[Rfam]
Nucleotides: 158
Base pairs, nucleotide, nucleotide: 011038012037013036014035015033018032019031020030021029022028023027044066045065046064047063048062049061052088053087054086055085067084068083069082070081071080072079073078124158125157132151133150134149135148136147137146138145
Number, partner (000 for none) and nucleotide at each position: 001000a002000c003000g004000c005000u006000g007000g008000c009000a010000g011038c012037a013036u014035g015033u016000u017000c018032g019031c020030u021029g022028g023027c024000g025000c026000u027023g028022c029021c030020g031019g032018c033015a034000g035014c036013a037012u038011g039000c040000c041000c042000a043000g044066g045065c046064a047063g048062u049061c050000g051000a052088g053087g054086c055085c056000u057000u058000c059000a060000a061049g062048a063047c064046u065045g066044c067084g068083g069082u070081g071080u072079g073078g074000u075000u076000c077000g078073c079072c080071g081070c082069a083068c084067u085055g086054g087053u088052u089000g090000g091000u092000u093000c094000u095000u096000u097000c098000u099000c100000c101000g102000g103000g104000c105000g106000c107000a108000c109000a110000c111000c112000g113000c114000g115000u116000c117000c118000a119000c120000u121000c122000a123000c124158c125157u126000c127000a128000c129000c130000c131000a132151c133150a134149a135148g136147g137146g138145a139000c140000a141000g142000a143000c144000c145138u146137c147136c148135c149134u150133u151132g152000c153000g154000g155000g156000c157125g158124g

The record is a 158-nucleotide RNA from Sinimarinibacterium flocculans, which matches "radC RNA" in Rfam. The base pairs follow the family's consensus structure, which is taken from published work. The match comes from Rfam's covariance-model search (95 bits). Lineage of the source: Bacteria > Pseudomonadota > Gammaproteobacteria > Nevskiaceae > Sinimarinibacterium. The family's RNA type in Rfam is cis-regulatory element.